[Rfam]
RNA: Microsporidia small subunit ribosomal RNA, nucleotides 1 to 455
Organism: Culicosporella lunata
RNA sequence: CACCAGGUUGAUUCUGCCUGACGUGGACACUUGCCUUGAAGAGUAAGCCAUGCAAGCUUGUGAAUAAAUCCUGAAACAGUGAACGGCUCAGUAGAACACAUUUCAUCUACCCAAGUUAAAAAUAACCAUGGGAAACUAUGGCUAAAUAUAAUUUGGAUGAGAGUGUGACCUAUCAGCUAGUAGGUACGGUAAGAGCGUACCUAGGCUAUGACGGGUAACGGGGAAUCAGAGUUCGAUUCCGGAGAGGGAGCCUGAGAGAUGGCUACUACGUCCAAGGAUGGCAGCAGGCGCGAAACUUACCCAAUGAACAUUGAGGUAGUUACGAGGCGUACCUAUGUAAUAUAAUUAUAUAGGGAUGAGGUAUGAUUUCAAAUCAUGCACGACAUACUGGAGGGCAAGGCUGGUGCCAGCAGCUGCGGUAAUUCCAGCUCCAGUAGUGUCUAUGUAAAUUGUUG
Numbered sequence: 001c002a003c004c005a006g007g008u009u010g011a012u013u014c015u016g017c018c019u020g021a022c023g024u025g026g027a028c029a030c031u032u033g034c035c036u037u038g039a040a041g042a043g044u045a046a047g048c049c050a051u052g053c054a055a056g057c058u059u060g061u062g063a064a065u066a067a068a069u070c071c072u073g074a075a076a077c078a079g080u081g082a083a084c085g086g087c088u089c090a091g092u093a094g095a096a097c098a099c100a101u102u103u104c105a106u107c108u109a110c111c112c113a114a115g116u117u118a119a120a121a122a123u124a125a126c127c128a129u130g131g132g133a134a135a136c137u138a139u140g141g142c143u144a145a146a147u148a149u150a151a152u153u154u155g156g157a158u159g160a161g162a163g164u165g166u167g168a169c170c171u172a173u174c175a176g177c178u179a180g181u182a183g184g185u186a187c188g189g190u191a192a193g194a195g196c197g198u199a200c201c202u203a204g205g206c207u208a209u210g211a212c213g214g215g216u217a218a219c220g221g222g223g224a225a226u227c228a229g230a231g232u233u234c235g236a237u238u239c240c241g242g243a244g245a246g247g248g249a250g251c252c253u254g255a256g257a258g259a260u261g262g263c264u265a266c267u268a269c270g271u272c273c274a275a276g277g278a279u280g281g282c283a284g285c286a287g288g289c290g291c292g293a294a295a296c297u298u299a300c301c302c303a304a305u306g307a308a309c310a311u312u313g314a315g316g317u318a319g320u321u322a323c324g325a326g327g328c329g330u331a332c333c334u335a336u337g338u339a340a341u342a343u344a345a346u347u348a349u350a351u352a353g354g355g356a357u358g359a360g361g362u363a364u365g366a367u368u369u370c371a372a373a374u375c376a377u378g379c380a381c382g383a384c385a386u387a388c389u390g391g392a393g394g395g396c397a398a399g400g401c402u403g404g405u406g407c408c409a410g411c412a413g414c415u416g417c418g419g420u421a422a423u424u425c426c427a428g429c430u431c432c433a434g435u436a437g438u439g440u441c442u443a444u445g446u447a448a449a450u451u452g453u454u455g
Stems, first nucleotide, its partner, number of pairs: 004020005022445010033328006039321002041291001047289003051286003056080002059078003087244003097167007106160002111156008120147001126141006169215003176206003181203008219241004223234004246267002249264003269280004297318001299317003305313003361379005388434006401428004410417002
Dot-bracket structure: ...(((((.......))))).((((((((((.(((((((((.....(((.(((..((.(((..............)))))......(((.......(((((((..((...((((((((.(.....((((((....)))))).....).))))))))..))))))))).(((....(((..((((((((.......)))))))))))......)))...((((((((....))))...))))))).((.(((..........))).)).((((....))))...)))))).).....(.(((...(((...))).)))).)).))))))................................(((((.........)))))........((((((.......((((.....((....)).......)))))))))).))))))))))..........